[Rfam]
Background:
Rfam assigns this 108-nucleotide RNA sequence from Nakamurella panacisegetis to the family "Guanidine-I riboswitch aptamer". The source organism's lineage runs through Bacteria, Bacillati, Actinomycetota, Nakamurellales and Nakamurella.
RNA sequence: GCGAGGCGCACCUAGGGUUCCUCCGAUCCUCGCCGGAUCGGGUUUGCGACCGAGAGGUGCAGGCAGGGCUUCGGCCCUGUUCCACGGCGGGAUAAAAGCCCGGGAGGC
Dot-bracket structure: .......(((((..((...((.((((((.......))))))....).).))....))))).((((((((....)))))))).(.[...(((.......))).)..]..
Source information: About the family: This family represents a conserved RNA structure found upstream of the ykkC and yxkD genes in Bacillus subtilis and related genes in other bacteria.